[Rfam]
RNA: Small nucleolar RNA SNORA27
Organism: Smithornis capensis
RNA sequence: CACCCUCCUUUCACUUUACCAGUUAGACAGUUAUUGUCUUGAUUGGUCAUUCAAGGUGGGUAAAGUGUUACUUCCUUUUUAAAACCCAAGCAAAUGGUGGUCGUUUGACUUGGAUCCUGUCAGAGGGAACAGUU
Numbered sequence: 001c002a003c004c005c006u007c008c009u010u011u012c013a014c015u016u017u018a019c020c021a022g023u024u025a026g027a028c029a030g031u032u033a034u035u036g037u038c039u040u041g042a043u044u045g046g047u048c049a050u051u052c053a054a055g056g057u058g059g060g061u062a063a064a065g066u067g068u069u070a071c072u073u074c075c076u077u078u079u080u081a082a083a084a085c086c087c088a089a090g091c092a093a094a095u096g097g098u099g100g101u102c103g104u105u106u107g108a109c110u111u112g113g114a115u116c117c118u119g120u121c122a123g124a125g126g127g128a129a130c131a132g133u134u
Base pairs, nucleotide, nucleotide: 035062036061037060038059039058043054044053045052046051074127075126076125077124078123079122087112088110091107092106093105094104095103